RNA sequence: GGUUGGUCCAAAGACAGUGAGUUAUCUCAGUUGAUUGUUCAUAGUCACAGAUGGAGCUCCUUGUUCUGCUCUCCCCACUUCUCACUACUGCCCUUGACUAGUCUUAG
Number, nucleotide and partner (000 for none) at each position: 001g103002g102003u101004u100005g099006g098007u097008c096009c000010a095011a094012a000013g000014a000015c090016a086017g085018u084019g083020a082021g081022u000023u000024a000025u000026c000027u000028c000029a000030g000031u000032u000033g000034a000035u000036u000037g000038u000039u000040c000041a000042u000043a000044g066045u000046c000047a000048c000049a000050g000051a000052u000053g000054g000055a000056g000057c000058u000059c000060c000061u000062u000063g000064u000065u000066c044067u000068g000069c000070u000071c000072u000073c000074c000075c000076c000077a000078c000079u000080u000081c021082u020083c019084a018085c017086u016087a000088c000089u000090g015091c000092c000093c000094u011095u010096g008097a007098c006099u005100a004101g003102u002103c001104u000105u000106a000107g000

Y RNA: a 107-nucleotide sequence from Carlito syrichta. The organism belongs to Carlito, within Eukaryota. The match comes from Rfam's covariance-model search (60 bits). The family's consensus secondary structure is taken from published work. Y RNAs are components of the Ro ribonucleoprotein particle (Ro RNP), in association with Ro60 and La proteins.